A member of the RNA family "Small nucleolar RNA R30/Z108" from Papaver nudicaule, 87 nucleotides long. The source organism's lineage runs through Eukaryota, Viridiplantae, Tracheophyta, Ranunculales and Papaver. Rfam 15.1 lists 626 matches to the family in 219 species. The family's RNA type in Rfam is C/D-box small nucleolar RNA. From the family's description: snoR30 is a C/D box small nucleolar RNA which acts as a methylation guide for 18S ribosomal RNA in plants. Its Rfam clan is "SNORD100 clan". The base pairs follow the family's consensus structure, which was predicted with PFOLD.
RNA sequence: AAAGAUUGCAACGAGGAACCAAGCUCCCUCUUCUGAGGAAAAUUGCUGGCUGAAUCGAACCUAAUUAUAAUCGCCACUACUGAGUAA
Numbered sequence: 001a002a003a004g005a006u007u008g009c010a011a012c013g014a015g016g017a018a019c020c021a022a023g024c025u026c027c028c029u030c031u032u033c034u035g036a037g038g039a040a041a042a043u044u045g046c047u048g049g050c051u052g053a054a055u056c057g058a059a060c061c062u063a064a065u066u067a068u069a070a071u072c073g074c075c076a077c078u079a080c081u082g083a084g085u086a087a
Stems, first nucleotide, its partner, number of pairs: 006087004